[Rfam]
RNA: MIR5084 microRNA precursor family
Organism: Triticum aestivum
RNA sequence: AUAGGGGUUGAGAUCCUCUGCAGUACCGUAUGGUGCUGUAGUGUCGAUGACAUGUGGGGCCAGAUCCUACAUGACAGCGACUGUACAACACCGUACAGUACUGCAGAGGAUCCUAACCCUCU
Numbered sequence: 001a002u003a004g005g006g007g008u009u010g011a012g013a014u015c016c017u018c019u020g021c022a023g024u025a026c027c028g029u030a031u032g033g034u035g036c037u038g039u040a041g042u043g044u045c046g047a048u049g050a051c052a053u054g055u056g057g058g059g060c061c062a063g064a065u066c067c068u069a070c071a072u073g074a075c076a077g078c079g080a081c082u083g084u085a086c087a088a089c090a091c092c093g094u095a096c097a098g099u100a101c102u103g104c105a106g107a108g109g110a111u112c113c114u115a116a117c118c119c120u121c122u
Stems, first nucleotide, its partner, number of pairs: 003122002005119005012112015028096008037087004051073009